[Rfam]
The record is a 112-nucleotide sequence from Methyloceanibacter superfactus, which matches "rpsB sRNA" in Rfam. By type it is a small RNA. The match comes from Rfam's covariance-model search (42 bits). For this family Rfam cites "Identification of candidate structured RNAs in the marine organism 'Candidatus Pelagibacter ubique'" (Meyer et al., BMC Genomics, 2009). Lineage of the source: Bacteria > Alphaproteobacteria > Hyphomicrobiales > Hyphomicrobiaceae > Methyloceanibacter.

RNA sequence: CACACGCGGGACGCUAAGCGUCACACAGGCCCUAUAACCUGUGCGCUCGCUCCGGUGAUUGGCUCCGGCCAGUCUCUUGUCCCGCGGCGGCAAAACCGGAAAAAGGAGUUCG
Numbered sequence: 001c002a003c004a005c006g007c008g009g010g011a012c013g014c015u016a017a018g019c020g021u022c023a024c025a026c027a028g029g030c031c032c033u034a035u036a037a038c039c040u041g042u043g044c045g046c047u048c049g050c051u052c053c054g055g056u057g058a059u060u061g062g063c064u065c066c067g068g069c070c071a072g073u074c075u076c077u078u079g080u081c082c083c084g085c086g087g088c089g090g091c092a093a094a095a096c097c098g099g100a101a102a103a104a105g106g107a108g109u110u111c112g
Base pairs, nucleotide, nucleotide: 001089003087005086006085007084008083009082010081011080018050019049026041027040029039057074058073059072060071061070062069